Record summary: This 75-nucleotide RNA from Takifugu rubripes belongs to the Rfam family "mir-17 microRNA precursor family". The literature on the family includes a 2025 paper in J Mol Biol by Liu et al., "Structural Features Within Precursor microRNA-20a Regulate Dicer-TRBP Processing". The organism belongs to Takifugu, within Eukaryota. Rfam links the family to the GO terms RISC complex and miRNA-mediated post-transcriptional gene silencing. The family's consensus secondary structure was predicted with RNAalifold. Rfam describes the family as follows. This family represents the microRNA (miRNA) precursor mir-17, family, which includes mir-20, mir-91, and mir-103. miRNAs are transcribed as ~70nt precursors (modelled here) and subsequently processed by the Dicer enzyme to give a ~22nt product. In this case the mature sequence comes from the 3' arm of the precursor. The extents of the hairpin precursors are not generally known and are estimated based on hairpin prediction.
RNA sequence: AGCAGUAUUAAAGUGCUUAUAGUGCAGGUAGUUACUGAUGGUCUACUGCAGUGUGAGCACUUCUAGUACUUCUAG
Numbered sequence: 001a002g003c004a005g006u007a008u009u010a011a012a013g014u015g016c017u018u019a020u021a022g023u024g025c026a027g028g029u030a031g032u033u034a035c036u037g038a039u040g041g042u043c044u045a046c047u048g049c050a051g052u053g054u055g056a057g058c059a060c061u062u063c064u065a066g067u068a069c070u071u072c073u074a075g
Stems, first nucleotide, its partner, number of pairs: 002072001004070002007067003011062011023050003027047005